Shown here is a 131-nucleotide RNA from Dipodomys ordii, a member of the family "Small nucleolar RNA SNORA51".
The family's RNA type in Rfam is H/ACA-box small nucleolar RNA.
ACA51 is a member of the H/ACA class of snoRNA that guide the sites of modification of uridines to pseudouridines.
RNA sequence: AGCCACCUUCCCAGCCCCUCAGCAGUAUUCUUAUACUGACUAUAUAUCAAUAGGAAGCAGAGUAAACCUAUCCCAUAGAUACCUCAGCCCAGGCCCUGUGCCUGAUCUGUAUUGUAAAUGAGGAGACAUGG
Dot-bracket structure: .((..(((............((..((((....))))...))..........)))..))............((.(((........(((..(((((.....)))))..)))........))).))........